[Rfam]
RNA sequence: AGCUUCGAUUGGGUAUCAGCAAUUGUCUUUGAUUAGGAGAAAGAGUGAGGAAGGUACCAAACGGUGUAGCAGACUUUUAAACUUUAGAAAGUUUUGAGUGCUUGAACUUACUUUUUCAUUUUACUUCAUCCUCCAAGGAGUGCAAUCACUUGGUGUGCCUUCUUCACUUCUUUUAAGCGAAAGAAGAGCGAACAGGCAAC
Numbered sequence: 001a002g003c004u005u006c007g008a009u010u011g012g013g014u015a016u017c018a019g020c021a022a023u024u025g026u027c028u029u030u031g032a033u034u035a036g037g038a039g040a041a042a043g044a045g046u047g048a049g050g051a052a053g054g055u056a057c058c059a060a061a062c063g064g065u066g067u068a069g070c071a072g073a074c075u076u077u078u079a080a081a082c083u084u085u086a087g088a089a090a091g092u093u094u095u096g097a098g099u100g101c102u103u104g105a106a107c108u109u110a111c112u113u114u115u116u117c118a119u120u121u122u123a124c125u126u127c128a129u130c131c132u133c134c135a136a137g138g139a140g141u142g143c144a145a146u147c148a149c150u151u152g153g154u155g156u157g158c159c160u161u162c163u164u165c166a167c168u169u170c171u172u173u174u175a176a177g178c179g180a181a182a183g184a185a186g187a188g189c190g191a192a193c194a195g196g197c198a199a200c
Stems, first nucleotide, its partner, number of pairs: 002020003008014002029140002033136002036133002039130001041126003047120002050117001052116003071095003075091002096111001098109001100107001149196004156190003162183003165179001167177003
The record is a 200-nucleotide RNA from Canis lupus, which matches "Connexin-43 internal ribosome entry site (IRES)" in Rfam. Rfam's curators write: This family represents the connexin-43 internal ribosome entry site (IRES) which allows cap independent translation during conditions such as heat shock and stress. Pairs were carried over by alignment from the consensus structure, which is taken from published work. A search with the family's covariance model found it, with a score of 118 bits. Taxonomically the source falls in Canis lupus (Eukaryota, Craniata, Laurasiatheria, Canidae).